About this RNA:
Shown here is a 439-nucleotide part of an RNA from Borreliella burgdorferi, a member of the family "Bacterial large subunit ribosomal RNA". The sequence is in the family's curated seed alignment. Its Rfam clan is "LSU clan". Taxonomically the source falls in Borreliella burgdorferi (Bacteria, Pseudomonadati, Spirochaetales, Borreliaceae). The family's consensus secondary structure is taken from published work.

RNA sequence: CUCCCCGAAAUGGAUUUAAGUUCAGCCUUAUUUUAGUUUAAUAGAGGUAGAGCACUAAUUGAGCUAGGGCCUGUCAAAGGGUACCAAACUCAGUUAAACUCCGAAUGCUAUUAAAUGAUGAAUAGGAGUGAGACUAUGGGCGAUAAGGUUCAUAGUCGAGAGGGAAACAACCCAGACCAACAGCUAAGGUCUCAAAAAUGUGUUAAGUGGAAAAGGAGGUUUAGGUACGUAAACAGCCAGGAGGUUGGCUUAGAAGCAGCCAUACCUUUAAAGAGUGCGUAAUAGCUCACUGGUCGAGUACUUAAGCGCCGAUAAUGUAACGGGGCUAAACACAUUACCGAAGCUUUGGAUCUUAACGAAAGUUAAGAUGGUAGGGGAGCGUUCUGUAAGCCAGAGAAGUUAAACUGGAAAGUUUGAUGGAGGUAUCAGAAGUGAGAAU
Numbered sequence: 001c002u003c004c005c006c007g008a009a010a011u012g013g014a015u016u017u018a019a020g021u022u023c024a025g026c027c028u029u030a031u032u033u034u035a036g037u038u039u040a041a042u043a044g045a046g047g048u049a050g051a052g053c054a055c056u057a058a059u060u061g062a063g064c065u066a067g068g069g070c071c072u073g074u075c076a077a078a079g080g081g082u083a084c085c086a087a088a089c090u091c092a093g094u095u096a097a098a099c100u101c102c103g104a105a106u107g108c109u110a111u112u113a114a115a116u117g118a119u120g121a122a123u124a125g126g127a128g129u130g131a132g133a134c135u136a137u138g139g140g141c142g143a144u145a146a147g148g149u150u151c152a153u154a155g156u157c158g159a160g161a162g163g164g165a166a167a168c169a170a171c172c173c174a175g176a177c178c179a180a181c182a183g184c185u186a187a188g189g190u191c192u193c194a195a196a197a198a199u200g201u202g203u204u205a206a207g208u209g210g211a212a213a214a215g216g217a218g219g220u221u222u223a224g225g226u227a228c229g230u231a232a233a234c235a236g237c238c239a240g241g242a243g244g245u246u247g248g249c250u251u252a253g254a255a256g257c258a259g260c261c262a263u264a265c266c267u268u269u270a271a272a273g274a275g276u277g278c279g280u281a282a283u284a285g286c287u288c289a290c291u292g293g294u295c296g297a298g299u300a301c302u303u304a305a306g307c308g309c310c311g312a313u314a315a316u317g318u319a320a321c322g323g324g325g326c327u328a329a330a331c332a333c334a335u336u337a338c339c340g341a342a343g344c345u346u347u348g349g350a351u352c353u354u355a356a357c358g359a360a361a362g363u364u365a366a367g368a369u370g371g372u373a374g375g376g377g378a379g380c381g382u383u384c385u386g387u388a389a390g391c392c393a394g395a396g397a398a399g400u401u402a403a404a405c406u407g408g409a410a411a412g413u414u415u416g417a418u419g420g421a422g423g424u425a426u427c428a429g430a431a432g433u434g435a436g437a438a439u
Base pairs, nucleotide, nucleotide: 001379002378003377004376005375006374011024012023013022014021015020026128027126028125029124030123031122032121033120035119036116037115038114039113040112041111042110043109044108050102051100052099056096057095058094060092061091062090063089067085068084069082070081071080072079132157133156134155135154136153137152138151139150140149141148162173163172164171177349178348179347180346182345183344184343188339189338190337197336198335199334200333201332202331203330215310216309219307220306221305222304223303224302225301226300227299228298236294237293238292239291240290242267243266244265247261248260249259268272273288277286278285350369351368352367353366354365355364356363357362380434382431383430384429385428386427390424391423392422399418400417401416402415403414404413405412406411